[Rfam]
RNA: mir-67 microRNA precursor family
RNA sequence: AUGGCGCCUUCCUCACUCAAUCUGGCUGUGGUGUUGAAGUAGGAGAUAUUUGCUCUUACUAAAUGUCCAUUUAAGCCAUCACAACCUCCUUGAGUGAGUGAGGUUCCUC
Numbered sequence: 001a002u003g004g005c006g007c008c009u010u011c012c013u014c015a016c017u018c019a020a021u022c023u024g025g026c027u028g029u030g031g032u033g034u035u036g037a038a039g040u041a042g043g044a045g046a047u048a049u050u051u052g053c054u055c056u057u058a059c060u061a062a063a064u065g066u067c068c069a070u071u072u073a074a075g076c077c078a079u080c081a082c083a084a085c086c087u088c089c090u091u092g093a094g095u096g097a098g099u100g101a102g103g104u105u106c107c108u109c
Stems, first nucleotide, its partner, number of pairs: 009100001012098009024086002027083007
Dot-bracket structure: ........(..(((((((((...((.(((((((...........................................))))))).))...))))))))).).........